The record is a 77-nucleotide sequence from Clostridium vincentii, which matches "ZMP/ZTP riboswitch aptamer (pfl RNA motif)" in Rfam. A search with the family's covariance model found it, with a score of 56 bits. Pairs were carried over by alignment from the consensus structure, which is taken from published work. The literature on the family includes a 2015 paper in Nat Struct Mol Biol by Jones and Ferre-D'Amare, "Recognition of the bacterial alarmone ZMP through long-distance association of two RNA subdomains".
RNA sequence: UACUAGUCAUAUAACUGACGGAAGUGGGUAACCACAUGAAGUAUGACUAUAGAAAGCCGACCGUCUGGGCACAAGUG
Numbered sequence: 001u002a003c004u005a006g007u008c009a010u011a012u013a014a015c016u017g018a019c020g021g022a023a024g025u026g027g028g029u030a031a032c033c034a035c036a037u038g039a040a041g042u043a044u045g046a047c048u049a050u051a052g053a054a055a056g057c058c059g060a061c062c063g064u065c066u067g068g069g070c071a072c073a074a075g076u077g
Base pairs, nucleotide, nucleotide: 004049005048006047007046008045009044010043011042012041015038017065018064019063020062021061024035025034026033027032056070057069058068